[Rfam]
RNA sequence: CAUCGGCUGCGGGCCCCUCUGGCGAGCGUGCGUGUCAACGCCCUCGUGAUGUCGGAGCCGAUGC
Numbered sequence: 001c002a003u004c005g006g007c008u009g010c011g012g013g014c015c016c017c018u019c020u021g022g023c024g025a026g027c028g029u030g031c032g033u034g035u036c037a038a039c040g041c042c043c044u045c046g047u048g049a050u051g052u053c054g055g056a057g058c059c060g061a062u063g064c
Base pairs, nucleotide, nucleotide: 006058007057008056010054011053012052022047023046024045025044026043028041029040
Shown here is a 64-nucleotide RNA from Methylobacterium oryzihabitans, a member of the family "terC RNA". By type it is a cis-regulatory element. The organism belongs to Methylobacterium, within Bacteria.